[Rfam]
Nucleotides: 220
Stems, first nucleotide, its partner, number of pairs: 009203002015199004
Number, partner (000 for none) and nucleotide at each position: 001000u002000c003000c004000u005000c006000c007000a008000c009203a010202g011000a012000c013000c014000u015199c016198c017197g018196a019000u020000u021000c022000u023000g024000a025000u026000u027000u028000u029000c030000c031000g032000c033000a034000a035000g036000g037000g038000a039000u040000g041000u042000u043000a044000c045000g046000c047000a048000c049000c050000g051000u052000u053000c054000c055000g056000g057000c058000g059000g060000c061000g062000g063000u064000u065000g066000g067000a068000g069000u070000g071000c072000c073000g074000c075000a076000a077000c078000a079000c080000g081000u082000c083000g084000c085000a086000g087000c088000u089000u090000c091000g092000g093000u094000u095000c096000c097000u098000g099000u100000a101000u102000c103000a104000g105000g106000u107000u108000a109000u110000a111000c112000a113000c114000c115000a116000a117000g118000c119000c120000g121000c122000c123000g124000c125000g126000u127000a128000u129000g130000g131000g132000a133000u134000u135000g136000u137000u138000g139000g140000g141000u142000g143000c144000c145000a146000g147000u148000c149000g150000u151000u152000g153000a154000u155000g156000c157000c158000u159000u160000c161000g162000a163000g164000g165000a166000a167000c168000a169000a170000c171000c172000c173000a174000c175000c176000g177000u178000c179000g180000u181000c182000g183000g184000a185000g186000c187000g188000a189000a190000u191000u192000a193000g194000u195000u196018u197017c198016g199015g200000a201000a202010c203009u204000u205000a206000a207000c208000c209000c210000u211000a212000a213000g214000u215000a216000c217000a218000u219000g220000u